[Rfam]
RNA sequence: AAGGAGGAAACUGAAAAUCCAGAAAAGAGUAAGUA
Numbered sequence: 001a002a003g004g005a006g007g008a009a010a011c012u013g014a015a016a017a018u019c020c021a022g023a024a025a026a027g028a029g030u031a032a033g034u035a
Stems, first nucleotide, its partner, number of pairs: 003020003010034003
Rfam assigns this 35-nucleotide RNA from Chryseobacterium sp. Leaf394 to the family "DUF805b RNA".
It scores 40 bits against the family's covariance model.
Pairs were carried over by alignment from the consensus structure, which is taken from published work.
The family's RNA type in Rfam is cis-regulatory element.